[Rfam]
Shown here is a 142-nucleotide sequence, a member of the family "Group II catalytic intron D1-D4-4". Rfam 15.1 lists 840 matches to the family in 506 species. Pairs were carried over by alignment from the consensus structure. It scores 98 bits against the family's covariance model. For this family Rfam cites "The ins and outs of group II introns" (Bonen and Vogel, Trends Genet, 2001). About the family: Group II introns are found in rRNA, tRNA and mRNA of organelles in fungi, plants and protists, and also in mRNA in bacteria.
RNA sequence: UCACUGGUGAAAGUCCGGUCUAGGUAAGAAUCAAGUCGCCUAGUAAUUGACAGGCAAUCGGGCGAGAAAUUCUAAGAUUGAAGCCCUGUGACAAAGUAACUUCUUACUAGAAGUGCGAGCGAAUUAGCAGACCGUAACAUAA
Numbered sequence: 001u002c003a004c005u006g007g008u009g010a011a012a013g014u015c016c017g018g019u020c021u022a023g024g025u026a027a028g029a030a031u032c033a034a035g036u037c038g039c040c041u042a043g044u045a046a047u048u049g050a051c052a053g054g055c056a057a058u059c060g061g062g063c064g065a066g067a068a069a070u071u072c073u074a075a076g077a078u079u080g081a082a083g084c085c086c087u088g089u090g091a092c093a094a095a096g097u098a099a100c101u102u103c104u105u106a107c108u109a110g111a112a113g114u115g116c117g118a119g120c121g122a123a124u125u126a127g128c129a130g131a132c133c134g135u136a137a138c139a140u141a142a
Base pairs, nucleotide, nucleotide: 020043021042022041023040024039050089051088052087053086054085055080056079057078058077059076064071065070096116099114100113101112102111103110119135120134121133